[Rfam]
RNA sequence: UCUAAAACUCAAAAUAUAGGCUAAAUACUGAACAAUGUUUAAGCUACAGGAUAGAUUCAGACUUCUCUUUUGAUGCUAAGAUUUGGACUUCCAAACAACAAAAUUAAGUCUUGGACUCUCAUGAAUGUUUUAGGCCUAUGUCUUAGCUUUCUAUC
Numbered sequence: 001u002c003u004a005a006a007a008c009u010c011a012a013a014a015u016a017u018a019g020g021c022u023a024a025a026u027a028c029u030g031a032a033c034a035a036u037g038u039u040u041a042a043g044c045u046a047c048a049g050g051a052u053a054g055a056u057u058c059a060g061a062c063u064u065c066u067c068u069u070u071u072g073a074u075g076c077u078a079a080g081a082u083u084u085g086g087a088c089u090u091c092c093a094a095a096c097a098a099c100a101a102a103a104u105u106a107a108g109u110c111u112u113g114g115a116c117u118c119u120c121a122u123g124a125a126u127g128u129u130u131u132a133g134g135c136c137u138a139u140g141u142c143u144u145a146g147c148u149u150u151c152u153a154u155c
Base pairs, nucleotide, nucleotide: 003153004152006150007149008146009145011144012143014141015140016139017138018137019136020135021133022132023131024130025129027128028127035122036121037120043117045115048112049111050110051109052108054105055104056103057102060099063097072088074086

This 155-nucleotide RNA sequence from Populus alba belongs to the Rfam family "MIR2912 microRNA precursor family". The base pairs follow the family's consensus structure, which was predicted with RNAalifold. The source organism's lineage runs through Eukaryota, Embryophyta, Pentapetalae, fabids and Populus. Rfam links the family to the GO terms RISC complex and miRNA-mediated post-transcriptional gene silencing. The family has 2 seed sequences and 15,051 matches in Rfam 15.1. A search with the family's covariance model found it, with a score of 112 bits.